[Rfam]
RNA sequence: UUUUCGGGAUCCGGCCCCCCACUUCGUGUAUUUGACAAGCUGAGUUGGACACUCUGUAUCAGGAAGUGUCAGUUUGUCAAAUACCCCAAGUGAGGUGUCACUAUUC
Dot-bracket structure: ...................((((..(.((((((((((((((......((((.(...........).)))))))))))))))))).)..))))..............
Numbered sequence: 001u002u003u004u005c006g007g008g009a010u011c012c013g014g015c016c017c018c019c020c021a022c023u024u025c026g027u028g029u030a031u032u033u034g035a036c037a038a039g040c041u042g043a044g045u046u047g048g049a050c051a052c053u054c055u056g057u058a059u060c061a062g063g064a065a066g067u068g069u070c071a072g073u074u075u076g077u078c079a080a081a082u083a084c085c086c087c088a089a090g091u092g093a094g095g096u097g098u099c100a101c102u103a104u105u106c
Stems, first nucleotide, its partner, number of pairs: 020092004026086001028084014048070004053065001

Annotation
mir-223 microRNA precursor family: a 106-nucleotide RNA sequence from Menidia menidia. NCBI's taxonomy places the organism under Eukaryota, Bilateria, Actinopteri, Acanthomorphata, Menidia. Rfam links the family to the GO terms miRNA-mediated post-transcriptional gene silencing and RISC complex.